[Rfam]
RNA sequence: CUCGUCUGAGGGGACGGGAGGAUCGCCUUCGCCGCCGCUUUGGCCAGUGCGCGGGGCCGUGCCCUGACAAGCUGCCUCGGGGGAGGCUCUUCGGAGCCGGACCUGGACCCUCGUGAUUGCCGCCUGCCCUCCCGCCUCUGGUCUCACGAAGGGUUUCCCGCCUCGCACCCCCACCUCUGGACGUGCUUUUCCCUCCUCCCCGCGUGCGGAGGGAGCCAGCGCUUAGGCCGGAGCGAGCCUGGGGGCCGCCGGCCGCGAAGGCAUCUCGGGCACAGAUUCGCCAUG
Numbered sequence: 001c002u003c004g005u006c007u008g009a010g011g012g013g014a015c016g017g018g019a020g021g022a023u024c025g026c027c028u029u030c031g032c033c034g035c036c037g038c039u040u041u042g043g044c045c046a047g048u049g050c051g052c053g054g055g056g057c058c059g060u061g062c063c064c065u066g067a068c069a070a071g072c073u074g075c076c077u078c079g080g081g082g083g084a085g086g087c088u089c090u091u092c093g094g095a096g097c098c099g100g101a102c103c104u105g106g107a108c109c110c111u112c113g114u115g116a117u118u119g120c121c122g123c124c125u126g127c128c129c130u131c132c133c134g135c136c137u138c139u140g141g142u143c144u145c146a147c148g149a150a151g152g153g154u155u156u157c158c159c160g161c162c163u164c165g166c167a168c169c170c171c172c173a174c175c176u177c178u179g180g181a182c183g184u185g186c187u188u189u190u191c192c193c194u195c196c197u198c199c200c201c202g203c204g205u206g207c208g209g210a211g212g213g214a215g216c217c218a219g220c221g222c223u224u225a226g227g228c229c230g231g232a233g234c235g236a237g238c239c240u241g242g243g244g245g246c247c248g249c250c251g252g253c254c255g256c257g258a259a260g261g262c263a264u265c266u267c268g269g270g271c272a273c274a275g276a277u278u279c280g281c282c283a284u285g
Stems, first nucleotide, its partner, number of pairs: 001013003016032001018030004034062002083156003087153001130149002184218002187215004196209002229252001231250001233249003